[Rfam]
RNA sequence: AUAUACACUGAGUGGCCAGAUUAUUAUGCUUUCUGGGACCAUAAUAAUCUGGCCACUCAGUAUAUAU
Numbered sequence: 001a002u003a004u005a006c007a008c009u010g011a012g013u014g015g016c017c018a019g020a021u022u023a024u025u026a027u028g029c030u031u032u033c034u035g036g037g038a039c040c041a042u043a044a045u046a047a048u049c050u051g052g053c054c055a056c057u058c059a060g061u062a063u064a065u066a067u
Stems, first nucleotide, its partner, number of pairs: 004064002007061011019049010
mir-9256 microRNA precursor family: a 67-nucleotide RNA sequence from Pipistrellus kuhlii. Lineage of the source: Eukaryota > Metazoa > Tetrapoda > Eutheria > Pipistrellus. The base pairs follow the family's consensus structure, which was predicted with RNAalifold.